[Rfam]
RNA sequence: UGGUUGGAAGAACAGUCCCAGAUGAUUCGUACAAAGUCCGACCAUAGGAGGUUUUGUAUGUAUUAUCUGGAAUUGUGCACAACC
Numbered sequence: 001u002g003g004u005u006g007g008a009a010g011a012a013c014a015g016u017c018c019c020a021g022a023u024g025a026u027u028c029g030u031a032c033a034a035a036g037u038c039c040g041a042c043c044a045u046a047g048g049a050g051g052u053u054u055u056g057u058a059u060g061u062a063u064u065a066u067c068u069g070g071a072a073u074u075g076u077g078c079a080c081a082a083c084c
Stems, first nucleotide, its partner, number of pairs: 002084005012076005018070009028060009038051002042047001
A member of the RNA family "mir-5897 microRNA precursor family" from Haemonchus contortus, 84 nucleotides long. The source organism's lineage runs through Eukaryota, Protostomia, Ecdysozoa, Chromadorea and Haemonchus.